[Rfam]
RNA sequence: AAAUUUAAUAGUAAUUCACCUCGUAUAACUUUGAGAAUAUGGCUCAAGAGUCUCUACCCGUUACCGUAAAUAACGGACUAUGAGGGAAGAUGAAGCAUGA
Numbered sequence: 001a002a003a004u005u006u007a008a009u010a011g012u013a014a015u016u017c018a019c020c021u022c023g024u025a026u027a028a029c030u031u032u033g034a035g036a037a038u039a040u041g042g043c044u045c046a047a048g049a050g051u052c053u054c055u056a057c058c059c060g061u062u063a064c065c066g067u068a069a070a071u072a073a074c075g076g077a078c079u080a081u082g083a084g085g086g087a088a089g090a091u092g093a094a095g096c097a098u099g100a
Base pairs, nucleotide, nucleotide: 019085020084021083022082023081024080025079030048031047032046033045034044035043058076059075060074061073062072063071

Overview
Rfam assigns this 100-nucleotide sequence from Amphibacillus marinus to the family "Purine riboswitch aptamer". Taxonomically the source falls in Amphibacillus (Bacteria, Bacillota, Caryophanales, Bacillaceae). The match comes from Rfam's covariance-model search (83 bits). Rfam describes the family as follows. Riboswitches are metabolite binding domains within certain messenger RNAs that serve as precision sensors for their corresponding targets.